[Rfam]
Overview: The record is a 67-nucleotide sequence from Bacillus sp. FJAT-50079, which matches "Bacillaceae-1 RNA" in Rfam. Rfam classes the family as a small RNA.

RNA sequence: UUUUAAGGAACGAAGCCUACAUUCUCCACAUCGUGUGGCAACGGCUUCCUGACCAACAUCCUGUUGG
Number, nucleotide and partner (000 for none) at each position: 001u000002u000003u000004u000005a000006a000007g000008g000009a000010a000011c000012g048013a047014a046015g045016c044017c043018u000019a000020c000021a000022u000023u000024c000025u000026c038027c037028a036029c035030a000031u000032c000033g000034u000035g029036u028037g027038g026039c000040a000041a000042c000043g017044g016045c015046u014047u013048c012049c000050u000051g000052a000053c067054c066055a065056a064057c063058a000059u000060c000061c000062u000063g057064u056065u055066g054067g053